Rfam assigns this 85-nucleotide sequence from Takifugu rubripes to the family "mir-301 microRNA precursor family". It is one of the family's seed sequences. The organism belongs to Takifugu, within Eukaryota.
RNA sequence: AGAGGUCAGCUGCUCUGACGAUGUUGCACUACUGUACCGUGCACUAAAGCAGUGCAAUAGUAUUGUCAUAGCAUCGGACCUUCGC
Dot-bracket structure: .(((..(.(.((((.((((...((((((((...(.......)........))))))))......)))).)))).).)..)))...